[Rfam]
RNA sequence: AGCUUUGAGCAGUGGCAGUAUUAUAGCCAAUGAGGUUAUCCAAGGUGUAGUUAUUGCUGAUUAUUGCUAACUGAAAAAUUAUGUAUAUUUGCUGUACAACAUGAGUUUUUUUUUUUUGGUACCAG
Numbered sequence: 001a002g003c004u005u006u007g008a009g010c011a012g013u014g015g016c017a018g019u020a021u022u023a024u025a026g027c028c029a030a031u032g033a034g035g036u037u038a039u040c041c042a043a044g045g046u047g048u049a050g051u052u053a054u055u056g057c058u059g060a061u062u063a064u065u066g067c068u069a070a071c072u073g074a075a076a077a078a079u080u081a082u083g084u085a086u087a088u089u090u091g092c093u094g095u096a097c098a099a100c101a102u103g104a105g106u107u108u109u110u111u112u113u114u115u116u117u118g119g120u121a122c123c124a125g
Stems, first nucleotide, its partner, number of pairs: 020051005026046003034041002073110005079104006
U4 spliceosomal RNA: a 125-nucleotide RNA sequence from Fukomys damarensis. U4 small nuclear RNA (U4 snRNA) is a component of the major U2-dependent spliceosome. Its family is annotated with U4 snRNP and spliceosomal tri-snRNP complex assembly in the Gene Ontology. Lineage of the source: Eukaryota > Sarcopterygii > Glires > Bathyergidae > Fukomys. By type it is a spliceosomal small nuclear RNA. The literature on the family includes a 1997 paper in Nucleic Acids Res by Zwieb, "The uRNA database". Its Rfam clan is "U4 clan".